The record is a 140-nucleotide sequence from Lates calcarifer, which matches "Small nucleolar RNA SNORD10" in Rfam. Pairs were carried over by alignment from the consensus structure, which was predicted with WAR. The organism belongs to Lates, within Eukaryota.
RNA sequence: GUAUGAUGAUGAAACCCAUGCGUGUCAGCUGACUCUGUAAACCCCUGGUGUGUUGCUGCUCUGGUUGGCGUUCUGCUGGCUCGAGUUGUCAGGACAGCAGGGAUCCAGAGACAUGAUCAUACAUCAUUACUUCUGAAUAC
Numbered sequence: 001g002u003a004u005g006a007u008g009a010u011g012a013a014a015c016c017c018a019u020g021c022g023u024g025u026c027a028g029c030u031g032a033c034u035c036u037g038u039a040a041a042c043c044c045c046u047g048g049u050g051u052g053u054u055g056c057u058g059c060u061c062u063g064g065u066u067g068g069c070g071u072u073c074u075g076c077u078g079g080c081u082c083g084a085g086u087u088g089u090c091a092g093g094a095c096a097g098c099a100g101g102g103a104u105c106c107a108g109a110g111a112c113a114u115g116a117u118c119a120u121a122c123a124u125c126a127u128u129a130c131u132u133c134u135g136a137a138u139a140c
Stems, first nucleotide, its partner, number of pairs: 001140004043102005049096003